[Rfam]
RNA sequence: AAAGCUGUGUGUGACUGGCGGACAUGGGGAACCAUGAGGGAGCACAUAGGGUACAAGGCCGUACGCCUGGGCAAAGGUA
Numbered sequence: 001a002a003a004g005c006u007g008u009g010u011g012u013g014a015c016u017g018g019c020g021g022a023c024a025u026g027g028g029g030a031a032c033c034a035u036g037a038g039g040g041a042g043c044a045c046a047u048a049g050g051g052u053a054c055a056a057g058g059c060c061g062u063a064c065g066c067c068u069g070g071g072c073a074a075a076g077g078u079a
Base pairs, nucleotide, nucleotide: 005049006048007047008046009045010044011043012042015039016038017067018066019065020064024035025034026033027032058072059071060070
RNA: ZMP/ZTP riboswitch aptamer (pfl RNA motif)
Organism: Paenibacillus foliorum